The family of this 88-nucleotide sequence from Desulfosporosinus sp. HMP52 is "c-di-GMP-I riboswitch aptamer". The match comes from Rfam's covariance-model search (82 bits). NCBI's taxonomy places the organism under Bacteria, Bacillota, Eubacteriales, Desulfitobacteriaceae, Desulfosporosinus.

[Rfam]
RNA sequence: UAACGAGAAAAGUAAACUUACUGAAAAGUAAGGACACAAAGCCAUGAGUCUAAAGUAUUAAAGAUACUAUGAUUGUCAGGUUGCCAAG
Numbered sequence: 001u002a003a004c005g006a007g008a009a010a011a012g013u014a015a016a017c018u019u020a021c022u023g024a025a026a027a028g029u030a031a032g033g034a035c036a037c038a039a040a041g042c043c044a045u046g047a048g049u050c051u052a053a054a055g056u057a058u059u060a061a062a063g064a065u066a067c068u069a070u071g072a073u074u075g076u077c078a079g080g081u082u083g084c085c086a087a088g
Stems, first nucleotide, its partner, number of pairs: 012037002017032006040082004045078003048073003055067004